About this RNA: The family of this 103-nucleotide sequence from Roseibium sp. RKSG952 is "Pyrrolysine insertion sequence mttB". The literature on the family includes a 2013 paper in BMC Bioinformatics by Theil Have et al., "Effects of using coding potential, sequence conservation and mRNA structure conservation for predicting pyrroly-sine containing genes". A search with the family's covariance model found it, with a score of 55 bits. The family's RNA type in Rfam is cis-regulatory element. The organism belongs to Roseibium, within Bacteria.
[Rfam]
RNA sequence: AUGACGGAUUCCAAGGUACCGGAUGCUCAGGCCGGAUACGAAAAGGGAUACACCGUGGCUCUGGCUGCUCAGGCGGGUGCUGACAUGAUCAACCUCAGCGUUG
Number, nucleotide and partner (000 for none) at each position: 001a000002u000003g012004a000005c000006g000007g000008a000009u000010u000011c000012c003013a000014a000015g000016g000017u000018a000019c000020c000021g000022g000023a000024u000025g032026c000027u000028c000029a000030g000031g000032c025033c000034g061035g060036a000037u000038a000039c000040g000041a000042a000043a000044a000045g000046g000047g000048a000049u000050a000051c000052a000053c000054c000055g000056u000057g000058g000059c000060u035061c034062u000063g000064g000065c000066u000067g000068c000069u000070c000071a000072g000073g000074c000075g000076g000077g101078u000079g099080c098081u097082g096083a000084c000085a000086u000087g000088a000089u000090c000091a000092a000093c000094c000095u000096c082097a081098g080099c079100g000101u077102u000103g000
Its family is annotated with pyrrolysine incorporation in the Gene Ontology.